[Rfam]
RNA sequence: GGCGUUGCAGGUCAUCCCCCCCUGACCUGCAGCGUCGACGGCCCCCGCUCCCCCGCGGGGGCCGUCCCCU
Numbered sequence: 001g002g003c004g005u006u007g008c009a010g011g012u013c014a015u016c017c018c019c020c021c022c023u024g025a026c027c028u029g030c031a032g033c034g035u036c037g038a039c040g041g042c043c044c045c046c047g048c049u050c051c052c053c054c055g056c057g058g059g060g061g062c063c064g065u066c067c068c069c070u
Stems, first nucleotide, its partner, number of pairs: 002036001004033010037066012
Rfam assigns this 70-nucleotide sequence from Ornithinimicrobium ciconiae to the family "6C RNA".
The match comes from Rfam's covariance-model search (60 bits).
Lineage of the source: Bacteria > Bacillati > Actinomycetota > Actinomycetes > Ornithinimicrobium.
A reference for the family is Weinberg et al. (2007), "Identification of 22 candidate structured RNAs in bacteria using the CMfinder comparative genomics pipeline", Nucleic Acids Res.